[Rfam]
RNA sequence: CUCAGGCACGGCAAUGGACUCUGCCGGAUUUUGGCCCGCCAAAAUCGAACCGCCUUACUGGCUGAUGAUUCCUACCCCGCA
Numbered sequence: 001c002u003c004a005g006g007c008a009c010g011g012c013a014a015u016g017g018a019c020u021c022u023g024c025c026g027g028a029u030u031u032u033g034g035c036c037c038g039c040c041a042a043a044a045u046c047g048a049a050c051c052g053c054c055u056u057a058c059u060g061g062c063u064g065a066u067g068a069u070u071c072c073u074a075c076c077c078c079g080c081a
Stems, first nucleotide, its partner, number of pairs: 010025004016072003020068002052062003
Fluoride riboswitch aptamer (crcB RNA motif): an 81-nucleotide RNA sequence from Acetobacter sp. DsW_54. The source organism's lineage runs through Bacteria, Pseudomonadati, Pseudomonadota, Acetobacterales and Acetobacter. The family's consensus secondary structure is taken from published work.